[Rfam]
The family of this 72-nucleotide RNA sequence from Cyphomyrmex costatus is "HDV ribozyme from F. prausnitzii". The family has 48 seed sequences and 3,803 matches in Rfam 15.1. The match comes from Rfam's covariance-model search (46 bits). Gene Ontology term of the family: catalytic activity.

RNA sequence: GUUUCUCCAAAUCGUCCACCUCCUCGCGGUGAGAAUCGGGCAACUUUGAAUAAUCAGAGGCAAAGGGACUAA
Number, nucleotide and partner (000 for none) at each position: 001g037002u000003u035004u034005c033006u032007c031008c000009a000010a000011a000012u000013c000014g000015u000016c000017c000018a030019c029020c028021u000022c000023c000024u000025c000026g000027c000028g020029g019030u018031g007032a006033g005034a004035a003036u000037c001038g000039g000040g000041c000042a000043a000044c059045u058046u057047u056048g055049a000050a000051u000052a000053a000054u000055c048056a047057g046058a045059g044060g000061c000062a000063a000064a000065g000066g000067g000068a000069c000070u000071a000072a000